This 132-nucleotide sequence from Hevea brasiliensis belongs to the Rfam family "Small nucleolar RNA snoR74". Gene Ontology terms of the family: nucleolus and RNA processing. It is annotated as an H/ACA-box small nucleolar RNA. Lineage of the source: Eukaryota > Euphyllophyta > Spermatophyta > eudicotyledons > Hevea. Pairs were carried over by alignment from the consensus structure, which was predicted with WAR.
RNA sequence: AACACAGCAAGGUCUGGUUGCCUCUUGUGAACUGGGUGCUUGUAAGCUUCAGGGAAAUUUAAUGUCAUUGUUUUGAUUGGUGAACCUCCGUAGUUUAUUGUGACUGAAGGUUCAGUAAAUGGUGGCACAUUG
Numbered sequence: 001a002a003c004a005c006a007g008c009a010a011g012g013u014c015u016g017g018u019u020g021c022c023u024c025u026u027g028u029g030a031a032c033u034g035g036g037u038g039c040u041u042g043u044a045a046g047c048u049u050c051a052g053g054g055a056a057a058u059u060u061a062a063u064g065u066c067a068u069u070g071u072u073u074u075g076a077u078u079g080g081u082g083a084a085c086c087u088c089c090g091u092a093g094u095u096u097a098u099u100g101u102g103a104c105u106g107a108a109g110g111u112u113c114a115g116u117a118a119a120u121g122g123u124g125g126c127a128c129a130u131u132g
Base pairs, nucleotide, nucleotide: 006048007047012037014035015034016033017032064126065125066124067123068122069121070120071119072118081114082113083112084111085110086109087108